RNA sequence: AUGCCAUCAGGAGAGGUAGAGGGAUCCGGCCCGUUGAAGCCUCCGCAACCCCCCGUCGCACUGACGGGACGGUGCGAAAUCCGGCCCCGAGAUGGGGGAAGAUGGUCG
Numbered sequence: 001a002u003g004c005c006a007u008c009a010g011g012a013g014a015g016g017u018a019g020a021g022g023g024a025u026c027c028g029g030c031c032c033g034u035u036g037a038a039g040c041c042u043c044c045g046c047a048a049c050c051c052c053c054c055g056u057c058g059c060a061c062u063g064a065c066g067g068g069a070c071g072g073u074g075c076g077a078a079a080u081c082c083g084g085c086c087c088c089g090a091g092a093u094g095g096g097g098g099a100a101g102a103u104g105g106u107c108g
Stems, first nucleotide, its partner, number of pairs: 003106006013043005021032003026084004044076004049072002052068004080100001085097005

A member of the RNA family "SAM riboswitch aptamer (S box leader)" from a Nitriliruptorales bacterium, 108 nucleotides long.